[Rfam]
RNA sequence: GUUGAUCAAUUUGGCAGUUGACUAUAACUUUGCUUCUGGAGGACAGAGUGGUAGAAUAACUCUUACUUGGAUUUACAGCUCUUUGCACUAUACAUUGAGAGUAGUGUUUUACUUAAAUCUGAUGUGAACAUUCUGGUCUAAAUAUAAAUUUGAAUCAGAAGGUUCUUAAAUAGCAGGGAUAAUGCUCGAAGCUGAAAACAGAGCAGAAAAAACUUGCAGCAUUGAGUAGCAGUGAGGUAGCACAUUUGAGUAAUUAGUUGUAGAGGUUGCUAAGUAAGAUAGUUGGACUAUUAUCUAU
Numbered sequence: 001g002u003u004g005a006u007c008a009a010u011u012u013g014g015c016a017g018u019u020g021a022c023u024a025u026a027a028c029u030u031u032g033c034u035u036c037u038g039g040a041g042g043a044c045a046g047a048g049u050g051g052u053a054g055a056a057u058a059a060c061u062c063u064u065a066c067u068u069g070g071a072u073u074u075a076c077a078g079c080u081c082u083u084u085g086c087a088c089u090a091u092a093c094a095u096u097g098a099g100a101g102u103a104g105u106g107u108u109u110u111a112c113u114u115a116a117a118u119c120u121g122a123u124g125u126g127a128a129c130a131u132u133c134u135g136g137u138c139u140a141a142a143u144a145u146a147a148a149u150u151u152g153a154a155u156c157a158g159a160a161g162g163u164u165c166u167u168a169a170a171u172a173g174c175a176g177g178g179a180u181a182a183u184g185c186u187c188g189a190a191g192c193u194g195a196a197a198a199c200a201g202a203g204c205a206g207a208a209a210a211a212a213c214u215u216g217c218a219g220c221a222u223u224g225a226g227u228a229g230c231a232g233u234g235a236g237g238u239a240g241c242a243c244a245u246u247u248g249a250g251u252a253a254u255u256a257g258u259u260g261u262a263g264a265g266g267u268u269g270c271u272a273a274g275u276a277a278g279a280u281a282g283u284u285g286g287a288c289u290a291u292u293a294u295c296u297a298u
Stems, first nucleotide, its partner, number of pairs: 001044003004023001006021006028041003046296001048294007057285005063277008076269005082263002087258004091252003095248001099247004104243004108236006117227002120224006126165004131160007139152005166172001173217005183210001186207002192201003
Record summary
Shown here is a 298-nucleotide sequence from Racocetra fulgida, a member of the family "Metazoan signal recognition particle RNA". Its family is annotated with SRP-dependent cotranslational protein targeting to membrane, signal sequence recognition and signal recognition particle, endoplasmic reticulum targeting in the Gene Ontology. Rfam describes the family as follows. The signal recognition particle (SRP) is a universally conserved ribonucleoprotein. It is involved in the co-translational targeting of proteins to membranes. The eukaryotic SRP consists of a 300-nucleotide 7S RNA and six proteins: SRPs 72, 68, 54, 19, 14, and 9. Archaeal SRP consists of a 7S RNA and homologues of the eukaryotic SRP19 and SRP54 proteins. The source organism's lineage runs through Eukaryota, Glomeromycota, Glomeromycetes, Diversisporales and Racocetra. A reference for the family is Batey et al. (2001), "Structural and energetic analysis of RNA recognition by a universally conserved protein from the signal recognition particle", J Mol Biol. Rfam 15.1 lists 383,523 matches to the family in 1,221 species.